[Rfam]
RNA sequence: CCGUGCAGCCGGGGUGUUAGCGGUACCUUGUACCCACAAUCCGCUAUAGUGGGGGUGAAGUUACACGGAGGGCGUAUGUUUGCGGAGCUGCCCUUGAUAAGUGGCGUUGAAGUCCGGGUCUUACGCGACGGGAAUCUAUGAACCAUGUCAGGGCGGGAACGCAGCAGCAUUAAGUAGAACCUUCCGGGUGCCGUGAGGGUGCCUGGGCGGAGCAGGCUGUCAAGGUAACGUCCGGGGAGAUACGUUCGAAGUGUAACGCACGA
Numbered sequence: 001c002c003g004u005g006c007a008g009c010c011g012g013g014g015u016g017u018u019a020g021c022g023g024u025a026c027c028u029u030g031u032a033c034c035c036a037c038a039a040u041c042c043g044c045u046a047u048a049g050u051g052g053g054g055g056u057g058a059a060g061u062u063a064c065a066c067g068g069a070g071g072g073c074g075u076a077u078g079u080u081u082g083c084g085g086a087g088c089u090g091c092c093c094u095u096g097a098u099a100a101g102u103g104g105c106g107u108u109g110a111a112g113u114c115c116g117g118g119u120c121u122u123a124c125g126c127g128a129c130g131g132g133a134a135u136c137u138a139u140g141a142a143c144c145a146u147g148u149c150a151g152g153g154c155g156g157g158a159a160c161g162c163a164g165c166a167g168c169a170u171u172a173a174g175u176a177g178a179a180c181c182u183u184c185c186g187g188g189u190g191c192c193g194u195g196a197g198g199g200u201g202c203c204u205g206g207g208c209g210g211a212g213c214a215g216g217c218u219g220u221c222a223a224g225g226u227a228a229c230g231u232c233c234g235g236g237g238a239g240a241u242a243c244g245u246u247c248g249a250a251g252u253g254u255a256a257c258g259c260a261c262g263a
Base pairs, nucleotide, nucleotide: 002262003261004260005259006258008056009055010054011029012028013027014026015025016024017023018022033053034052035051036050037049061256062255063254064253065252066251070247071246072245073244074243076241077240079238080237081236083234084233085232089227090226093224094223095222096221097220098219101217102216104213105212112208113207114206115205116204117203118202119201120197121196122195123194124193125192126188129186130185131184132183133182135178136177137176138175139174145170146169147168148167153162154161155160

A member of the RNA family "Bacterial large signal recognition particle RNA" from Lachnoclostridium sp. An181, 263 nucleotides long. The base pairs follow the family's consensus structure, which is taken from published work. A reference for the family is Regalia et al. (2002), "Prediction of signal recognition particle RNA genes", Nucleic Acids Res. From the family's description: The signal recognition particle (SRP) is a universally conserved ribonucleoprotein involved in the co-translational targeting of proteins to membranes. By type it is a non-coding RNA gene.